Glycine riboswitch aptamer: a 107-nucleotide sequence from Luteimonas chenhongjianii. The source organism's lineage runs through Bacteria, Pseudomonadati, Lysobacterales, Lysobacteraceae and Luteimonas.

[Rfam]
RNA sequence: CGGCAACACUCUGGAGAGACCGGAGGCCCGUAGGGGCACACCCGGCGCCGAAGGGGCACGAAGCACAUCGCUUCCAAACUCUCAGGCAAAAGGACAGAGGGGCACGC
Numbered sequence: 001c002g003g004c005a006a007c008a009c010u011c012u013g014g015a016g017a018g019a020c021c022g023g024a025g026g027c028c029c030g031u032a033g034g035g036g037c038a039c040a041c042c043c044g045g046c047g048c049c050g051a052a053g054g055g056g057c058a059c060g061a062a063g064c065a066c067a068u069c070g071c072u073u074c075c076a077a078a079c080u081c082u083c084a085g086g087c088a089a090a091a092g093g094a095c096a097g098a099g100g101g102g103c104a105c106g107c
Base pairs, nucleotide, nucleotide: 007101009099010098011097012096013095020045021044022043023042047087048086049085050083051082054081055080056079060074061073062072063071